[Rfam]
RNA: SAM riboswitch aptamer (S box leader)
Organism: Oceanobacillus halophilus
RNA sequence: UUCUUAUCCAGAGAGAGGGAGGGACUGACCCUGUGAACUCUCGGCAACCAGUUCAAGUCAUGUUUAUUUCAUGCUUGAGCACGGUGCCAAUUUCAGAGGAAUGAUAUAGAAUUCCGAAGAUGAGAA
Numbered sequence: 001u002u003c004u005u006a007u008c009c010a011g012a013g014a015g016a017g018g019g020a021g022g023g024a025c026u027g028a029c030c031c032u033g034u035g036a037a038c039u040c041u042c043g044g045c046a047a048c049c050a051g052u053u054c055a056a057g058u059c060a061u062g063u064u065u066a067u068u069u070c071a072u073g074c075u076u077g078a079g080c081a082c083g084g085u086g087c088c089a090a091u092u093u094c095a096g097a098g099g100a101a102u103g104a105u106a107u108a109g110a111a112u113u114c115c116g117a118a119g120a121u122g123a124g125a126a
Base pairs, nucleotide, nucleotide: 001126002125003124004123005122006121007120008119013042014041015040016039017038021031022030023029025096026095027094028093043088044087045086046085048084049083051080052079053078054077055076056075057074058073092118098114099113100112102110